[Rfam]
RNA sequence: UGACGUCGUCAAUUCCGUAGUGCAUUGCAGUUUAUUUAUAAAAAUUACUGCAAGCAUUGUGGAAGUGAUAAUAUCAU
Numbered sequence: 001u002g003a004c005g006u007c008g009u010c011a012a013u014u015c016c017g018u019a020g021u022g023c024a025u026u027g028c029a030g031u032u033u034a035u036u037u038a039u040a041a042a043a044a045u046u047a048c049u050g051c052a053a054g055c056a057u058u059g060u061g062g063a064a065g066u067g068a069u070a071a072u073a074u075c076a077u
Stems, first nucleotide, its partner, number of pairs: 006071001009068003014063005021056003025053005
Annotation: A member of the RNA family "mir-932 microRNA precursor family" from Ceratitis capitata, 77 nucleotides long. It scores 68 bits against the family's covariance model. Rfam links the family to the GO terms RISC complex and miRNA-mediated post-transcriptional gene silencing.